[Rfam]
RNA sequence: GGUGGAAGAUUCCAAAGGGAUCGCAUUGAUCCAAUAAUUCUCUCUGUCAACUUUACUAAGUUUACUUUGAUUCUCCGGAUCGGAUCAUGCCAUCUCUAUGGAAUUUUCUAU
Numbered sequence: 001g002g003u004g005g006a007a008g009a010u011u012c013c014a015a016a017g018g019g020a021u022c023g024c025a026u027u028g029a030u031c032c033a034a035u036a037a038u039u040c041u042c043u044c045u046g047u048c049a050a051c052u053u054u055a056c057u058a059a060g061u062u063u064a065c066u067u068u069g070a071u072u073c074u075c076c077g078g079a080u081c082g083g084a085u086c087a088u089g090c091c092a093u094c095u096c097u098a099u100g101g102a103a104u105u106u107u108c109u110a111u
Base pairs, nucleotide, nucleotide: 002111003110004109005108006107008105009104010103011102012101013100014099016097017096018095019094020093021092023090024089025088026087028086029085030084031083032082